[Rfam]
RNA sequence: ACAGUCUGAAAAUCACUUUGGGUCUCCUGUGGCCCCUGGUGCGAUAACUGUGCCGACAGCAGAGGGAGCAUUAAACUCAUUGCCUGAGGUAAAGUGUGGGGACUGAUACCCAUGUUCCUAUAAUC
Numbered sequence: 001a002c003a004g005u006c007u008g009a010a011a012a013u014c015a016c017u018u019u020g021g022g023u024c025u026c027c028u029g030u031g032g033c034c035c036c037u038g039g040u041g042c043g044a045u046a047a048c049u050g051u052g053c054c055g056a057c058a059g060c061a062g063a064g065g066g067a068g069c070a071u072u073a074a075a076c077u078c079a080u081u082g083c084c085u086g087a088g089g090u091a092a093a094g095u096g097u098g099g100g101g102a103c104u105g106a107u108a109c110c111c112a113u114g115u116u117c118c119u120a121u122a123a124u125c
Base pairs, nucleotide, nucleotide: 006050008048010045014041015040016039021034022033023032024031065118067116068115069114070113071112077106078105079104081102085096